[Rfam]
RNA: Mammalian CPEB3 ribozyme
Organism: Alligator mississippiensis
Nucleotides: 076
Stems, first nucleotide, its partner, number of pairs: 013042004019076007026038003047064001049062005
Number, partner (000 for none) and nucleotide at each position: 001000a002000g003000c004000u005000g006000c007000c008000a009000u010000a011000a012000u013042g014041g015040c016039u017000a018000u019076a020075g021074c022073a023072g024071a025070a026038g027037u028036g029000u030000u031000c032000a033000c034000a035000u036028c037027a038026c039016a040015g041014c042013c043000c044000u045000g046000u047064c048000u049062g050061a051060u052059u053058c054000c055000a056000a057000u058053g059052a060051a061050u062049c063000u064047g065000c066000u067000a068000a069000a070025u071024u072023c073022u074021g075020c076019u